Rfam assigns this 287-nucleotide RNA from Molossus molossus to the family "Mason-Pfizer monkey virus packaging signal". About the family: This family represents a group of sequences that are related to the Mason-Pfizer monkey virus (MPMV) packaging signal. The packaging signal is located in the 5' UTR and is required for specific RNA encapsidation. NCBI's taxonomy places the organism under Eukaryota, Metazoa, Teleostomi, Chiroptera, Molossus.

[Rfam]
RNA sequence: UGGCGCCCAACGUGGGGCUCCAGCACGGGGGAUCCAGUGAAGGACGCCGUUCGAGUGGCCGGCAGAAAGGAAAGCAAAGGAAAAGAAGAUAAAAGAAAAGAGGGAAGGACGUGGGAACCUGCUGCGUCUGCACCCCUCGGGUAAGGGAACGGCGAUUAUGGGGCAAGCAUUGAGCCAAGAUAAGAUGUUCGUUGAAGGACUAGGAAAGGCUAUAAAGGCACGAGGAGUAAAGGUGAAAAUUAAGCAUUUGUGUCAGUAUUUUGAUUAUAUUAAAGAAGUUUGUCCUU
Numbered sequence: 001u002g003g004c005g006c007c008c009a010a011c012g013u014g015g016g017g018c019u020c021c022a023g024c025a026c027g028g029g030g031g032a033u034c035c036a037g038u039g040a041a042g043g044a045c046g047c048c049g050u051u052c053g054a055g056u057g058g059c060c061g062g063c064a065g066a067a068a069g070g071a072a073a074g075c076a077a078a079g080g081a082a083a084a085g086a087a088g089a090u091a092a093a094a095g096a097a098a099a100g101a102g103g104g105a106a107g108g109a110c111g112u113g114g115g116a117a118c119c120u121g122c123u124g125c126g127u128c129u130g131c132a133c134c135c136c137u138c139g140g141g142u143a144a145g146g147g148a149a150c151g152g153c154g155a156u157u158a159u160g161g162g163g164c165a166a167g168c169a170u171u172g173a174g175c176c177a178a179g180a181u182a183a184g185a186u187g188u189u190c191g192u193u194g195a196a197g198g199a200c201u202a203g204g205a206a207a208g209g210c211u212a213u214a215a216a217g218g219c220a221c222g223a224g225g226a227g228u229a230a231a232g233g234u235g236a237a238a239a240u241u242a243a244g245c246a247u248u249u250g251u252g253u254c255a256g257u258a259u260u261u262u263g264a265u266u267a268u269a270u271u272a273a274a275g276a277a278g279u280u281u282g283u284c285c286u287u
Base pairs, nucleotide, nucleotide: 006031007030008029012026013025014024100138101137102136103134104133110126111125112124113123114122146164150161153160154159171214172213174210175209176208221263222262223261224260225259227257228256231249232248233247234246235245272287273286275284276283